[Rfam]
About this RNA
The family of this 82-nucleotide RNA sequence from Rattus norvegicus is "mir-181 microRNA precursor family". Rfam 15.1 lists 3,490 matches to the family in 650 species. It is one of the family's seed sequences.
RNA sequence: GGUCACAAUUAACAUUCAUUGUUGUCGGUGGGUUGUGAGGAGAAGACCAGACCCACCGGGGGAUGAAUGUCACUGUGGCUGG
Numbered sequence: 001g002g003u004c005a006c007a008a009u010u011a012a013c014a015u016u017c018a019u020u021g022u023u024g025u026c027g028g029u030g031g032g033u034u035g036u037g038a039g040g041a042g043a044a045g046a047c048c049a050g051a052c053c054c055a056c057c058g059g060g061g062g063a064u065g066a067a068u069g070u071c072a073c074u075g076u077g078g079c080u081g082g
Base pairs, nucleotide, nucleotide: 002080003078004077005076006075007074013069014068015067016066017065018064019063020062025059026058027057028056029055030054032052033051034050
The literature on the family includes a 2003 paper in RNA by Lagos-Quintana et al., "New microRNAs from mouse and human".